Nucleotides: 088
Base pairs, nucleotide, nucleotide: 004086005085006084007083008082010076011075012074013073014072042051043050044049
Number, partner (000 for none) and nucleotide at each position: 001000g002000u003000u004086g005085g006084c007083a008082c009000u010076a011075u012074g013073a014072g015000g016000a017000a018000c019000u020000a021000u022000u023000u024000u025000g026000c027000u028000a029000a030000u031000g032000u033000a034000u035000c036000u037000a038000u039000g040000a041000g042051g043050u044049u045000g046000u047000a048000a049044g050043g051042c052000c053000a054000a055000u056000g057000a058000c059000u060000c061000a062000c063000a064000a065000u066000g067000u068000c069000c070000u071000u072014u073013u074012c075011a076010u077000u078000c079000u080000g081000a082008g083007u084006g085005c086004c087000u088000g
A member of the RNA family "Small nucleolar RNA Z162" from Zizania palustris, 88 nucleotides long. For this family Rfam cites "The high diversity of snoRNAs in plants: identification and comparative study of 120 snoRNA genes from Oryza sativa" (Chen et al., Nucleic Acids Res, 2003). Taxonomically the source falls in Zizania (Eukaryota, Viridiplantae, Euphyllophyta, Zizaniinae). It scores 90 bits against the family's covariance model. It is annotated as a C/D-box small nucleolar RNA. Rfam links the family to the GO terms RNA processing and nucleolus.